[Rfam]
RNA: IMES-2 RNA motif
RNA sequence: AAUUGAAUUAAGGGGCAACUCUUAACUGGCCAGUUAAGGAAAAACCGAGAGGUUCAAGCUUAACGGGCAGAAAGGUGGAAACAGUAGCGCUUUACAUUUCCAUCGACGGGCUUGGCGGUAGCGCCUACAACGACGAGCCAA
Numbered sequence: 001a002a003u004u005g006a007a008u009u010a011a012g013g014g015g016c017a018a019c020u021c022u023u024a025a026c027u028g029g030c031c032a033g034u035u036a037a038g039g040a041a042a043a044a045c046c047g048a049g050a051g052g053u054u055c056a057a058g059c060u061u062a063a064c065g066g067g068c069a070g071a072a073a074g075g076u077g078g079a080a081a082c083a084g085u086a087g088c089g090c091u092u093u094a095c096a097u098u099u100c101c102a103u104c105g106a107c108g109g110g111c112u113u114g115g116c117g118g119u120a121g122c123g124c125c126u127a128c129a130a131c132g133a134c135g136a137g138c139c140a141a
Stems, first nucleotide, its partner, number of pairs: 008025007026070003030067002033064006043054004074104008087124005109139006116132002